RNA sequence: AAUCGCUGGUGGCGCACUCCCUGUUAAGGGCUUUGUGAUCACGUGCGCAUUCAGCAUACCGAUACCAGGCCCGCUUUUUUCAGCGGGCUUUUUUUU
Numbered sequence: 001a002a003u004c005g006c007u008g009g010u011g012g013c014g015c016a017c018u019c020c021c022u023g024u025u026a027a028g029g030g031c032u033u034u035g036u037g038a039u040c041a042c043g044u045g046c047g048c049a050u051u052c053a054g055c056a057u058a059c060c061g062a063u064a065c066c067a068g069g070c071c072c073g074c075u076u077u078u079u080u081c082a083g084c085g086g087g088c089u090u091u092u093u094u095u096u
Base pairs, nucleotide, nucleotide: 009042010041011040012039014036015035016034019030020029021028022027068089069088070087071086072085073084074083
Dot-bracket structure: ........((((.(((..((((....))))...)))..)))).........................(((((((........))))))).......
Notes:
Shown here is a 96-nucleotide sequence from Kosakonia cowanii, a member of the family "Tryptophan operon leader". A reference for the family is Kolter and Yanofsky (1982), "Attenuation in amino acid biosynthetic operons", Annu Rev Genet. A search with the family's covariance model found it, with a score of 63 bits. Rfam describes the family as follows. At least 6 amino acid operons are known to be regulated by attenuation. In each a leader sequence of 150-200 bp is found upstream of the first gene in the operon. This leader sequence can assume two different secondary structures known as the terminator and the anti-terminator structure. Gene Ontology terms of the family: transcriptional attenuation by ribosome and tryptophan biosynthetic process. It is annotated as a cis-regulatory leader.